[Rfam]
RNA sequence: ACCGCGCCUAGCUCGACGGGGCGAAAGCAGGGUUCCCUUACCCUGUUGGCGCGGUAUCUCAGAUAAGGG
Dot-bracket structure: ((((((((..((((....)))).....(((((..[[[[[[)))))..))))))))........]]]]]]
Rfam assigns this 69-nucleotide sequence from Paraburkholderia fynbosensis to the family "int-alpA RNA". By type it is a small RNA. The match comes from Rfam's covariance-model search (63 bits). Rfam describes the family as follows. Acidobacteria (1 example), Planctomycetes (1 example), Proteobacteria. The source organism's lineage runs through Bacteria, Pseudomonadati, Pseudomonadota, Betaproteobacteria and Paraburkholderia.